[Rfam]
RNA sequence: AAGCCAUGAUGGGGACAUUGAGACCAAUAGCCCUUGAACCUCUCCCAAGCUUUACUAAAGCCCUCUAGGUUCUUCUUCUGAAAGCUAGAAAUCUCAUUCCUGAUCUU
Numbered sequence: 001a002a003g004c005c006a007u008g009a010u011g012g013g014g015a016c017a018u019u020g021a022g023a024c025c026a027a028u029a030g031c032c033c034u035u036g037a038a039c040c041u042c043u044c045c046c047a048a049g050c051u052u053u054a055c056u057a058a059a060g061c062c063c064u065c066u067a068g069g070u071u072c073u074u075c076u077u078c079u080g081a082a083a084g085c086u087a088g089a090a091a092u093c094u095c096a097u098u099c100c101u102g103a104u105c106u107u
Stems, first nucleotide, its partner, number of pairs: 001107001003105001005102002057074002060071001
Plant small nucleolar RNA R71: a 107-nucleotide RNA from Brassica carinata. The match comes from Rfam's covariance-model search (81 bits). It is annotated as a C/D-box small nucleolar RNA. The family's consensus secondary structure was predicted with PFOLD. The organism belongs to Brassica, within Eukaryota.